[Rfam]
RNA sequence: AUCCAAGGUGAUUCCCUCUCCAAGAGGCCAGUCAGUGCCCCUUUCAGGAAAGUAGCAACUUGGAAGAAAAUCUGGCAUGCCUGAGGUCGGGGGACAGGGGAUUCUUGUUUCCUUUACCUUCCUUUGGCUGCCUACAGGU
Numbered sequence: 001a002u003c004c005a006a007g008g009u010g011a012u013u014c015c016c017u018c019u020c021c022a023a024g025a026g027g028c029c030a031g032u033c034a035g036u037g038c039c040c041c042u043u044u045c046a047g048g049a050a051a052g053u054a055g056c057a058a059c060u061u062g063g064a065a066g067a068a069a070a071u072c073u074g075g076c077a078u079g080c081c082u083g084a085g086g087u088c089g090g091g092g093g094a095c096a097g098g099g100g101a102u103u104c105u106u107g108u109u110u111c112c113u114u115u116a117c118c119u120u121c122c123u124u125u126g127g128c129u130g131c132c133u134a135c136a137g138g139u
Stems, first nucleotide, its partner, number of pairs: 002064006009057002019049003022043003026039003075129001078127001083122001085120001089112001091110003
RNA: Small nucleolar RNA SNORA67
Organism: Cavia porcellus